[Rfam]
RNA sequence: UGUGACCGUUUUACCUGGUCAAUAUUAGAGUCGCUUUGCGCCAAAUACUUCUAAUACUGUCAGGUAAUGACGAUCAUU
Numbered sequence: 001u002g003u004g005a006c007c008g009u010u011u012u013a014c015c016u017g018g019u020c021a022a023u024a025u026u027a028g029a030g031u032c033g034c035u036u037u038g039c040g041c042c043a044a045a046u047a048c049u050u051c052u053a054a055u056a057c058u059g060u061c062a063g064g065u066a067a068u069g070a071c072g073a074u075c076a077u078u
Base pairs, nucleotide, nucleotide: 002077003076004075005074007072008071009070010069011067012066013065014064015063016062017061020059021058023056024055025054026053028052030050
RNA: mir-236 microRNA precursor family